[Rfam]
RNA sequence: GGUCUGUGAUGAGUAGUAAAAGGUCUGAUUAGCCUAAGACUUGCACUUCCAUGACCUUUCUCCCAGCAGUUCUCACCAGUCAUGGCACAGUAAUGGUGUGGCUGGCAGAGUGUUUGCUGACAGCUUGUGAUGUGUUCAGUUCACGUUAACCUGAAGUACCAGAGACAUGACUGGGAUCAGCAUCCAACAGUCUUACUUGAAGGAGUUUGGGGUCUUGGAUUGUUAUAACUGGACAUGUGAUCUGACUUUUCUGCUGAGACC
Numbered sequence: 001g002g003u004c005u006g007u008g009a010u011g012a013g014u015a016g017u018a019a020a021a022g023g024u025c026u027g028a029u030u031a032g033c034c035u036a037a038g039a040c041u042u043g044c045a046c047u048u049c050c051a052u053g054a055c056c057u058u059u060c061u062c063c064c065a066g067c068a069g070u071u072c073u074c075a076c077c078a079g080u081c082a083u084g085g086c087a088c089a090g091u092a093a094u095g096g097u098g099u100g101g102c103u104g105g106c107a108g109a110g111u112g113u114u115u116g117c118u119g120a121c122a123g124c125u126u127g128u129g130a131u132g133u134g135u136u137c138a139g140u141u142c143a144c145g146u147u148a149a150c151c152u153g154a155a156g157u158a159c160c161a162g163a164g165a166c167a168u169g170a171c172u173g174g175g176a177u178c179a180g181c182a183u184c185c186a187a188c189a190g191u192c193u194u195a196c197u198u199g200a201a202g203g204a205g206u207u208u209g210g211g212g213u214c215u216u217g218g219a220u221u222g223u224u225a226u227a228a229c230u231g232g233a234c235a236u237g238u239g240a241u242c243u244g245a246c247u248u249u250u251c252u253g254c255u256g257a258g259a260c261c
Base pairs, nucleotide, nucleotide: 001261002260003259004258037243038242039241041239048219049218050217051216053214054213060205061204062203063202064119065118066117067116068115069114076105077104078103079102080101081100082099083098084097127185129184130183131182132181133180144169145168146167151162152161153160
Dot-bracket structure: ((((................................(((.(......((((.((.....((((((((((......(((((((((............)))))))))........)))))).......(.(((((..........(((....(((......)))....)))..........))))))................)))).......)).))))...................).)))..............))))